This 121-nucleotide sequence from Quercus lobata belongs to the Rfam family "MIR1509 microRNA precursor family". The family's consensus secondary structure was predicted with RNAalifold. The family has 8 seed sequences and 42 matches in Rfam 15.1. NCBI's taxonomy places the organism under Eukaryota, Tracheophyta, Euphyllophyta, Gunneridae, Quercus.
[Rfam]
RNA sequence: GGGUCCAAUACAUAUUUUUAUACAGAGUAAUCACGGUUGAGAACAAACAAACUUGCAACAAUAUUAUUAGUCUCUCAAACUCUCAACCGUGUUUCUCUGUAUAACGAGAUGUACUGGAUCC
Dot-bracket structure: (((((((...(((..(.((((((((((.((.((((((.(((........................................))).)))))))).)))))))))).)..)))...)))))))
Numbered sequence: 001g002g003g004u005c006c007a008a009u010a011c012a013u014a015u016u017u018u019u020a021u022a023c024a025g026a027g028u029a030a031u032c033a034c035g036g037u038u039g040a041g042a043a044c045a046a047a048c049a050a051a052c053u054u055g056c057a058a059c060a061a062u063a064u065u066a067u068u069a070g071u072c073u074c075u076c077a078a079a080c081u082c083u084c085a086a087c088c089g090u091g092u093u094u095c096u097c098u099g100u101a102u103a104a105c106g107a108g109a110u111g112u113a114c115u116g117g118a119u120c121c
Stems, first nucleotide, its partner, number of pairs: 001121007011111003016106001018104010029093002032091006039084003